[Rfam]
RNA sequence: GGGAUAUGAUGAGUGGUCAGUGCUUGCUAAAACUAUGCGAGAUGGGUGUCCGCUCCAACGCCUGGUUACGACAACUGGGCACUCCCAUCUGGACCGAUCUGAUCCC
Numbered sequence: 001g002g003g004a005u006a007u008g009a010u011g012a013g014u015g016g017u018c019a020g021u022g023c024u025u026g027c028u029a030a031a032a033c034u035a036u037g038c039g040a041g042a043u044g045g046g047u048g049u050c051c052g053c054u055c056c057a058a059c060g061c062c063u064g065g066u067u068a069c070g071a072c073a074a075c076u077g078g079g080c081a082c083u084c085c086c087a088u089c090u091g092g093a094c095c096g097a098u099c100u101g102a103u104c105c106c
Stems, first nucleotide, its partner, number of pairs: 001106004014096005023041005044084007063077004
RNA: Small nucleolar RNA Z279/snoR105/snoR108
Organism: Rhamnella rubrinervis